[Rfam]
RNA sequence: UCCUUGGUUGUGUGAUGAAAUAAAUGUUGGUAGGGACAUCUGAGUUACUGUGAAGAAACGCCAACAUUUCUGACACCAGAGG
Numbered sequence: 001u002c003c004u005u006g007g008u009u010g011u012g013u014g015a016u017g018a019a020a021u022a023a024a025u026g027u028u029g030g031u032a033g034g035g036a037c038a039u040c041u042g043a044g045u046u047a048c049u050g051u052g053a054a055g056a057a058a059c060g061c062c063a064a065c066a067u068u069u070c071u072g073a074c075a076c077c078a079g080a081g082g
Stems, first nucleotide, its partner, number of pairs: 001082002004079002
The family of this 82-nucleotide RNA sequence from Parambassis ranga is "Small nucleolar RNA SNORD74". For this family Rfam cites "Purified box C/D snoRNPs are able to reproduce site-specific 2'-O-methylation of target RNA in vitro" (Galardi et al., Mol Cell Biol, 2002). By type it is a C/D-box small nucleolar RNA. Rfam 15.1 lists 929 matches to the family in 615 species.